[Rfam]
RNA sequence: AUACUUACCUGGACGGAAUCAAUGAGUGAUCAAUAAGGCUCAUGGUUUAGGUUGGUGAUCUCCAUUGCACUUUGGAGAGGUGCCUGCCUAAGGUCGGCCCAAGUGGUCGAGCCUACGUCAUAAUUUGUGUCAGCGAGGGACCUGCGUUCGCGCGGCCCCUAC
Numbered sequence: 001a002u003a004c005u006u007a008c009c010u011g012g013a014c015g016g017a018a019u020c021a022a023u024g025a026g027u028g029a030u031c032a033a034u035a036a037g038g039c040u041c042a043u044g045g046u047u048u049a050g051g052u053u054g055g056u057g058a059u060c061u062c063c064a065u066u067g068c069a070c071u072u073u074g075g076a077g078a079g080g081u082g083c084c085u086g087c088c089u090a091a092g093g094u095c096g097g098c099c100c101a102a103g104u105g106g107u108c109g110a111g112c113c114u115a116c117g118u119c120a121u122a123a124u125u126u127g128u129g130u131c132a133g134c135g136a137g138g139g140a141c142c143u144g145c146g147u148u149c150g151c152g153c154g155g156c157c158c159c160u161a162c
Stems, first nucleotide, its partner, number of pairs: 012119004016048006023042005049089003053086001055083003059079001061077001062075002091114003094110003098106002136160004143154004
Dot-bracket structure: ...........((((((((((.(((((..........)))))))))))(((.(.(((.(.(((..........)).).).)))..)))).((((((.((.....)).))).))).))))................((((...((((....))))..))))..

The family of this 162-nucleotide sequence from Centaurea solstitialis is "U1 spliceosomal RNA". Its Rfam clan is "U1 clan". The match comes from Rfam's covariance-model search (143 bits).